[Rfam]
RNA sequence: CCCGUGACCCGUACGGGAACGGGACGAAAUGUGGUUGCGCGGCGAGGACGACGACGUGUCGUCUUCGUUGGCGGAACUGAAUCGCAAG
Numbered sequence: 001c002c003c004g005u006g007a008c009c010c011g012u013a014c015g016g017g018a019a020c021g022g023g024a025c026g027a028a029a030u031g032u033g034g035u036u037g038c039g040c041g042g043c044g045a046g047g048a049c050g051a052c053g054a055c056g057u058g059u060c061g062u063c064u065u066c067g068u069u070g071g072c073g074g075a076a077c078u079g080a081a082u083c084g085c086a087a088g
Base pairs, nucleotide, nucleotide: 001023002022003021004020005019025084026083027082033078034077035076036075
Shown here is an 88-nucleotide RNA sequence from Halogranum rubrum, a member of the family "eL15-Euryarchaeota ribosomal protein leader". It is annotated as a cis-regulatory leader. The sequence is in the family's curated seed alignment. The family's consensus secondary structure is taken from published work. The literature on the family includes a 2020 paper in BMC Microbiol by Eckert and Weinberg, "Discovery of 20 novel ribosomal leader candidates in bacteria and archaea". The organism belongs to Halogranum rubrum, within Archaea.